[Rfam]
RNA sequence: CUCCCAUUAAUGAAGUCCACGGUUUGAAACCUGCCUGCAGACGGCCGUGGAUGGAUGCUCGCGUG
Numbered sequence: 001c002u003c004c005c006a007u008u009a010a011u012g013a014a015g016u017c018c019a020c021g022g023u024u025u026g027a028a029a030c031c032u033g034c035c036u037g038c039a040g041a042c043g044g045c046c047g048u049g050g051a052u053g054g055a056u057g058c059u060c061g062c063g064u065g
Stems, first nucleotide, its partner, number of pairs: 001065001003063001005061001015052010031040003
RNA: Selenocysteine insertion sequence 1